[Rfam]
RNA sequence: GCAGGACUAAUACCCGCUUUCUUGACAGAACAAGAAUUUUGGUAUUAGUCCUGCAACU
Numbered sequence: 001g002c003a004g005g006a007c008u009a010a011u012a013c014c015c016g017c018u019u020u021c022u023u024g025a026c027a028g029a030a031c032a033a034g035a036a037u038u039u040u041g042g043u044a045u046u047a048g049u050c051c052u053g054c055a056a057c058u
Stems, first nucleotide, its partner, number of pairs: 001054014019036006

Overview
A member of the RNA family "Plastid-psbA-3 3UTR RNA" from Coptis chinensis, 58 nucleotides long. The source organism's lineage runs through Eukaryota, Viridiplantae, Streptophytina, Euphyllophyta and Coptis. Clan: Plastid-psbA 3UTR RNA clan. Plastid psbA-3 is a non-coding RNA (ncRNA) present in plastids. It was identified in inverted repeat sequences in the 3 prime untranslate region (3UTR) of photosystem II quinone-binding protein (psbA). It is annotated as a cis-regulatory element. The base pairs follow the family's consensus structure, which was predicted with LocARNA.